[Rfam]
RNA sequence: CGCCGAGUCCCCGCGAGGGGAGCCGGGGACCCAACCCGCCAGGCCCGCGCCUGGCAAAUCCCCGGGGUGAAUCGGCCCCCGCCCCACCCACGGGGCGAGGCCGUAGGGCGCCUUCUUCCGCCCGAACCCGUCAGCUAACCCGGUAGGCGGCCGAAGGAGA
Dot-bracket structure: ((((...(((((....)))))((((((....(...............................)(((.....((((.......................))))..((((..........))))...))).........)))))).))))...........
Numbered sequence: 001c002g003c004c005g006a007g008u009c010c011c012c013g014c015g016a017g018g019g020g021a022g023c024c025g026g027g028g029a030c031c032c033a034a035c036c037c038g039c040c041a042g043g044c045c046c047g048c049g050c051c052u053g054g055c056a057a058a059u060c061c062c063c064g065g066g067g068u069g070a071a072u073c074g075g076c077c078c079c080c081g082c083c084c085c086a087c088c089c090a091c092g093g094g095g096c097g098a099g100g101c102c103g104u105a106g107g108g109c110g111c112c113u114u115c116u117u118c119c120g121c122c123c124g125a126a127c128c129c130g131u132c133a134g135c136u137a138a139c140c141c142g143g144u145a146g147g148c149g150g151c152c153g154a155a156g157g158a159g160a
Stems, first nucleotide, its partner, number of pairs: 001149004008021005022144006032064001065129003073103004106123004

The family of this 160-nucleotide sequence from Actinospica acidithermotolerans is "c-di-AMP riboswitch aptamer (ydaO/yuaA leader)". NCBI's taxonomy places the organism under Bacteria, Actinomycetota, Actinomycetes, Catenulisporales, Actinospica. Its family is annotated with regulation of gene expression and cyclic-di-AMP binding in the Gene Ontology.